Annotation:
The family of this 48-nucleotide RNA from Caballeronia novacaledonica is "Guanidine-II riboswitch aptamer (mini-ykkC)".
RNA sequence: UGCCGGGGACGACCCCGGCAUGCACGCUCACGUGGCGGGACGGCCCGC
Numbered sequence: 001u002g003c004c005g006g007g008g009a010c011g012a013c014c015c016c017g018g019c020a021u022g023c024a025c026g027c028u029c030a031c032g033u034g035g036c037g038g039g040a041c042g043g044c045c046c047g048c
Base pairs, nucleotide, nucleotide: 001020002019003018004017005016006015007014008013035048036047037046038045039044
The base pairs follow the family's consensus structure, which is taken from published work.